Rfam assigns this 76-nucleotide sequence from Bicyclus anynana to the family "mir-971 microRNA precursor family".
RNA sequence: CUCUCAGUCCACUGUAAGUAUGAGCGCCGAGCGUAUUGAAUAAAGUUUGGUGUUCUACCUUACAGUGAAUUGCGAG
Numbered sequence: 001c002u003c004u005c006a007g008u009c010c011a012c013u014g015u016a017a018g019u020a021u022g023a024g025c026g027c028c029g030a031g032c033g034u035a036u037u038g039a040a041u042a043a044a045g046u047u048u049g050g051u052g053u054u055c056u057a058c059c060u061u062a063c064a065g066u067g068a069a070u071u072g073c074g075a076g
Base pairs, nucleotide, nucleotide: 006071007070008069010067011066012065013064015062016061017060025052026051027050028049029048030047031046032045
Overview
Gene Ontology terms of the family: miRNA-mediated post-transcriptional gene silencing and RISC complex. The match comes from Rfam's covariance-model search (68 bits). Pairs were carried over by alignment from the consensus structure, which was predicted with RNAalifold.